Shown here is a 131-nucleotide sequence from Desulfosporosinus sp. Tol-M, a member of the family "Group II catalytic intron D1-D4-2".

Nucleotides: 131
Stems, first nucleotide, its partner, number of pairs: 001028005029054006036047004059130001061104006067093002070090003074086004109127006
Number, partner (000 for none) and nucleotide at each position: 001028g002027g003026g004025u005024g006000a007000a008000a009000u010000u011000c012000c013000c014000c015000c016000g017000g018000g019000c020000u021000a022000c023000u024005c025004a026003c027002c028001c029054g030053g031052a032051a033050u034049c035000g036047c037046u038045a039044u040000a041000c042000a043000g044039g045038u046037a047036g048000a049034g050033a051032u052031u053030c054029c055000a056000a057000a058000c059130c060000g061104c062103c063102u064101u065100a066099a067093g068092c069000u070090g071089c072088u073000u074086u075085g076084g077083u078000c079000a080000a081000a082000a083077g084076c085075c086074a087000c088072g089071g090070u091000a092068g093067u094000g095000a096000g097000c098000g099066u100065u101064a102063a103062g104061g105000a106000a107000a108000a109127g110126a111125c112124g113123a114122g115000a116000c117000u118000u119000g120000a121000u122114c123113u124112c125111g126110u127109u128000a129000g130059g131000u
Group II introns are found in rRNA, tRNA and mRNA of organelles in fungi, plants and protists, and also in mRNA in bacteria. Its family is annotated with Group II intron splicing in the Gene Ontology.